[Rfam]
RNA sequence: AGGAGAACAAAAGCGCCAGCGCCCAAGAAGUAACUCGGGCGGACGAGGAUGGAGUGAUCGAAGAUUCGGCGGAUGCUCCACGGAAUCACCAGCUUCCGAGAAAGGAUCGAAAAAACUGGAGGGCAACGUCCAGGACAAUGCGGUCUGGGCUGAGGAC
Numbered sequence: 001a002g003g004a005g006a007a008c009a010a011a012a013g014c015g016c017c018a019g020c021g022c023c024c025a026a027g028a029a030g031u032a033a034c035u036c037g038g039g040c041g042g043a044c045g046a047g048g049a050u051g052g053a054g055u056g057a058u059c060g061a062a063g064a065u066u067c068g069g070c071g072g073a074u075g076c077u078c079c080a081c082g083g084a085a086u087c088a089c090c091a092g093c094u095u096c097c098g099a100g101a102a103a104g105g106a107u108c109g110a111a112a113a114a115a116c117u118g119g120a121g122g123g124c125a126a127c128g129u130c131c132a133g134g135a136c137a138a139u140g141c142g143g144u145c146u147g148g149g150c151u152g153a154g155g156a157c
Stems, first nucleotide, its partner, number of pairs: 020041005026035002050080005058069004081098005104146006116133005122127001
glmS glucosamine-6-phosphate activated ribozyme aptamer: a 157-nucleotide RNA sequence from Clostridiaceae bacterium JG1575. The family's consensus secondary structure is taken from published work. Rfam classes the family as a riboswitch. Gene Ontology terms of the family: regulation of gene expression and catalytic activity. Rfam's curators write: This entry contains a glucosamine-6-phosphate activated ribozyme that is found in the mRNA for GlmS. GlmS is an enzyme that uses fructose-6-phosphate and glutamine to generate glucosamine-6-phosphate.